[Rfam]
SAM riboswitch aptamer (S box leader): a 129-nucleotide sequence from Effusibacillus lacus. It scores 82 bits against the family's covariance model. Its family is annotated with regulation of gene expression in the Gene Ontology. The base pairs follow the family's consensus structure, which is taken from published work.

RNA sequence: CUCUUAUCCAGAGCAGGCGGAGGGACUGGCCCGAUGAAGCCCGGCAACCUGAAUCUUUCUCUUGUGCCAAAGAGCACGGGAUGGAUUUGUGGUGCUAAUUCCUGCAGGAAAUUACCUGAAAGAUAAGAG
Numbered sequence: 001c002u003c004u005u006a007u008c009c010a011g012a013g014c015a016g017g018c019g020g021a022g023g024g025a026c027u028g029g030c031c032c033g034a035u036g037a038a039g040c041c042c043g044g045c046a047a048c049c050u051g052a053a054u055c056u057u058u059c060u061c062u063u064g065u066g067c068c069a070a071a072g073a074g075c076a077c078g079g080g081a082u083g084g085a086u087u088u089g090u091g092g093u094g095c096u097a098a099u100u101c102c103u104g105c106a107g108g109a110a111a112u113u114a115c116c117u118g119a120a121a122g123a124u125a126a127g128a129g
Stems, first nucleotide, its partner, number of pairs: 001129008013042001016041003022032003026104001028102002043096004048092002051087002100121001105118004